Guanidine-II riboswitch aptamer (mini-ykkC): a 48-nucleotide RNA sequence from Penaeus vannamei.
[Rfam]
RNA sequence: CCCGAAGGACGACCUUCUGACCGCCCAUUCUCCCGAAGGACGACCUUC
Numbered sequence: 001c002c003c004g005a006a007g008g009a010c011g012a013c014c015u016u017c018u019g020a021c022c023g024c025c026c027a028u029u030c031u032c033c034c035g036a037a038g039g040a041c042g043a044c045c046u047u048c
Stems, first nucleotide, its partner, number of pairs: 002019001004017005035048005
Its family is annotated with regulation of gene expression in the Gene Ontology. Simpler in structure and has fewer highly conserved nucleotide positions than the ykkC-yxkD leader. Lineage of the source: Eukaryota > Altocrustacea > Dendrobranchiata > Penaeidae > Penaeus.